[Rfam]
Nucleotides: 082
Stems, first nucleotide, its partner, number of pairs: 004035008013026002016023002049071005055065002
Number, partner (000 for none) and nucleotide at each position: 001000a002000c003000c004035u005034g006033u007032u008031g009030c010029g011028g012000g013026c014025g015000g016023c017022g018000a019000g020000a021000g022017c023016g024000g025014c026013g027000g028011c029010c030009g031008c032007g033006a034005c035004a036000c037000a038000a039000g040000a041000c042000a043000c044000a045000c046000a047000c048000c049071g050070u051069g052068c053067c054000a055065c056064g057000g058000g059000a060000a061000g062000a063000a064056c065055g066000c067053g068052g069051c070050a071049c072000u073000u074000u075000u076000g077000g078000g079000c080000g081000u082000u

Rfam assigns this 82-nucleotide RNA from Streptomyces sp. HmicA12 to the family "nrdJ RNA". The base pairs follow the family's consensus structure, which is taken from published work.